[Rfam]
RNA sequence: AAGCAAGAUUCAGACUACAAUAUAGCUAUUAAGUGUUGUGUUGUCAAUCCCCCUGCUCAAAAUAAGGUUGUUUCUUAACUGCGCCUGUCUGCUGUACCCCUGUAGCAGCCAGAGAUGCUUAGUUUAUUGUAA
Numbered sequence: 001a002a003g004c005a006a007g008a009u010u011c012a013g014a015c016u017a018c019a020a021u022a023u024a025g026c027u028a029u030u031a032a033g034u035g036u037u038g039u040g041u042u043g044u045c046a047a048u049c050c051c052c053c054u055g056c057u058c059a060a061a062a063u064a065a066g067g068u069u070g071u072u073u074c075u076u077a078a079c080u081g082c083g084c085c086u087g088u089c090u091g092c093u094g095u096a097c098c099c100c101u102g103u104a105g106c107a108g109c110c111a112g113a114g115a116u117g118c119u120u121a122g123u124u125u126a127u128u129g130u131a132a
Stems, first nucleotide, its partner, number of pairs: 003056003007052001017044010085112003089108004
Background
The family of this 132-nucleotide RNA sequence from Castor canadensis is "Small nucleolar RNA SNORA63". E3 belongs to the H/ACA class of snoRNAs and is involved in the processing of eukaryotic pre-rRNA and has regions of complementarity to 18S rRNA. E3 is encoded in introns in the gene for protein synthesis initiation factor 4AII. Its family is annotated with nucleolus and RNA processing in the Gene Ontology. It scores 105 bits against the family's covariance model. Rfam classes the family as an H/ACA-box small nucleolar RNA.